[Rfam]
RNA sequence: AUAACUGAGAGGGCGGAAACAAAUCCACCUUCCUACGCGGUCAAAGUCUUGGGAGGAUGCGAUCCUGGCGCGGUCACUCGCUGCCGCCGGAAACGGAAAUUGGAUCGGACGCGUUUAAUUGCAAGGCCUCGCGCCUUGCAUUUUUUU
Numbered sequence: 001a002u003a004a005c006u007g008a009g010a011g012g013g014c015g016g017a018a019a020c021a022a023a024u025c026c027a028c029c030u031u032c033c034u035a036c037g038c039g040g041u042c043a044a045a046g047u048c049u050u051g052g053g054a055g056g057a058u059g060c061g062a063u064c065c066u067g068g069c070g071c072g073g074u075c076a077c078u079c080g081c082u083g084c085c086g087c088c089g090g091a092a093a094c095g096g097a098a099a100u101u102g103g104a105u106c107g108g109a110c111g112c113g114u115u116u117a118a119u120u121g122c123a124a125g126g127c128c129u130c131g132c133g134c135c136u137u138g139c140a141u142u143u144u145u146u147u
Stems, first nucleotide, its partner, number of pairs: 003147002011029002015025002036113004046058004061106005067085003070081003087096003120140008
RNA: Alphaproteobacterial sRNA ar9
Organism: Mesorhizobium sp. NBSH29